[Rfam]
RNA sequence: CAGCCUUUGCCAACACUCUGGCCUGUACCGGCGCGAAUGUUUUCAUUUGAGCAAAAUCUCUACGGUACUGGCCUAUUUUGGUGCAAAGGAGAUCGAGUGACCAACUACUCACCGCAGUAUCCUGGAUGGUGCUCGGGUAUGGUUUCCUUUCGGGGAAAUACAUGUCCAUGCAUCUAUCUUGUGGAUGCGGUGGUCCAUCUUGAAGGUCUACAU
Numbered sequence: 001c002a003g004c005c006u007u008u009g010c011c012a013a014c015a016c017u018c019u020g021g022c023c024u025g026u027a028c029c030g031g032c033g034c035g036a037a038u039g040u041u042u043u044c045a046u047u048u049g050a051g052c053a054a055a056a057u058c059u060c061u062a063c064g065g066u067a068c069u070g071g072c073c074u075a076u077u078u079u080g081g082u083g084c085a086a087a088g089g090a091g092a093u094c095g096a097g098u099g100a101c102c103a104a105c106u107a108c109u110c111a112c113c114g115c116a117g118u119a120u121c122c123u124g125g126a127u128g129g130u131g132c133u134c135g136g137g138u139a140u141g142g143u144u145u146c147c148u149u150u151c152g153g154g155g156a157a158a159u160a161c162a163u164g165u166c167c168a169u170g171c172a173u174c175u176a177u178c179u180u181g182u183g184g185a186u187g188c189g190g191u192g193g194u195c196c197a198u199c200u201u202g203a204a205g206g207u208c209u210a211c212a213u
Base pairs, nucleotide, nucleotide: 007086008085009084020073021072022071023070026067027066028065029064031052032051034049099208100207101206102205112193113192114191115190117188118187119186120185121184122183
Shown here is a 213-nucleotide RNA sequence from Trichophyton benhamiae, a member of the family "Small nucleolar RNA snR80".
Taxonomically the source falls in Trichophyton benhamiae (Eukaryota, Dikarya, Pezizomycotina, Eurotiomycetes).
Its family is annotated with nucleolus and RNA processing in the Gene Ontology.
For this family Rfam cites "Genome-wide searching for pseudouridylation guide snoRNAs: analysis of the Saccharomyces cerevisiae genome" (Schattner et al., Nucleic Acids Res, 2004).
It scores 46 bits against the family's covariance model.
By type it is an H/ACA-box small nucleolar RNA.